RNA sequence: CUUGAUCGAGCCGAGGAGCAGUGGCCGGCCCUCCUCGCGGUCCUGGCCGUACGUGGCCAGCAGCGCCUGGGCCUC
Numbered sequence: 001c002u003u004g005a006u007c008g009a010g011c012c013g014a015g016g017a018g019c020a021g022u023g024g025c026c027g028g029c030c031c032u033c034c035u036c037g038c039g040g041u042c043c044u045g046g047c048c049g050u051a052c053g054u055g056g057c058c059a060g061c062a063g064c065g066c067c068u069g070g071g072c073c074u075c
Stems, first nucleotide, its partner, number of pairs: 015025001031071003038065002043060003047056003